[Rfam]
RNA sequence: ACAGCAACCCUAACAAAAGCAUUGACUGGUUUUGUCUGCAGUAAGUGCUUUUUUUGGGGUUAUCUGU
Dot-bracket structure: ...(.((((((.(.(((((((((.(((............))).))))))))).).)))))).)....